This 132-nucleotide sequence from Piaya cayana belongs to the Rfam family "Small nucleolar RNA SNORA69".
By type it is an H/ACA-box small nucleolar RNA.
The family has 16 seed sequences and 808 matches in Rfam 15.1.
U69 is a member of the H/ACA class of small nucleolar RNAs (snoRNAs) which act as guides in the the modification of uridines to pseudouridines.
NCBI's taxonomy places the organism under Eukaryota, Chordata, Sauropsida, Sauria, Piaya.
RNA sequence: AAAGCAGGCUGCAAUUGCAGUGCUUCAUCCUGUGGGAGUACUGCCAUUUUCCUGCUAAGAGUAACUCUGUUAACAAUGUCUUUGGUUUCACCUUUAUGGUGGUGAAACCAUUUAUUCUUAACAUGUACAGAU
Numbered sequence: 001a002a003a004g005c006a007g008g009c010u011g012c013a014a015u016u017g018c019a020g021u022g023c024u025u026c027a028u029c030c031u032g033u034g035g036g037a038g039u040a041c042u043g044c045c046a047u048u049u050u051c052c053u054g055c056u057a058a059g060a061g062u063a064a065c066u067c068u069g070u071u072a073a074c075a076a077u078g079u080c081u082u083u084g085g086u087u088u089c090a091c092c093u094u095u096a097u098g099g100u101g102g103u104g105a106a107a108c109c110a111u112u113u114a115u116u117c118u119u120a121a122c123a124u125g126u127a128c129a130g131a132u
Base pairs, nucleotide, nucleotide: 003056004055005054006053007052008051018043019042020041021040022039023038024037025036026035066125068123069122070121071120072119073118075116083110084109085108086107087106088105089104090103091102092101094099